[Rfam]
RNA sequence: GUGAGAAUCACAGUGUGGCUCUCCUCUGGCAUGAAGGCGCGGCUGAGAGGCACGAACAGUUUCUGGCCUUCCCCUGCCAAUGCCAAAGGAGAGCUGCCCUGCCAUUCGUUA
Number, nucleotide and partner (000 for none) at each position: 001g000002u000003g000004a000005g107006a106007a105008u104009c000010a000011c101012a100013g099014u000015g097016u096017g095018g094019c093020u000021c091022u090023c089024c088025u000026c000027u085028g084029g083030c082031a081032u080033g000034a000035a000036g000037g000038c000039g000040c000041g000042g000043c000044u000045g000046a000047g000048a000049g000050g000051c000052a000053c000054g000055a000056a000057c000058a000059g000060u000061u000062u000063c000064u000065g000066g000067c000068c000069u000070u000071c000072c000073c000074c000075u000076g000077c000078c000079a000080a032081u031082g030083c029084c028085a027086a000087a000088g024089g023090a022091g021092a000093g019094c018095u017096g016097c015098c000099c013100u012101g011102c000103c000104a008105u007106u006107c005108g000109u000110u000111a000